[Rfam]
RNA: Small nucleolar RNA SNORD123
RNA sequence: GGUGAAAAUGAUGAAUUCUGGGUCUCUGAGUCAUGUGACCUGAAAAAGGCCAUCCAUUUCCUGAUUCACC
Numbered sequence: 001g002g003u004g005a006a007a008a009u010g011a012u013g014a015a016u017u018c019u020g021g022g023u024c025u026c027u028g029a030g031u032c033a034u035g036u037g038a039c040c041u042g043a044a045a046a047a048g049g050c051c052a053u054c055c056a057u058u059u060c061c062u063g064a065u066u067c068a069c070c
Base pairs, nucleotide, nucleotide: 001070002069003068004067005066006065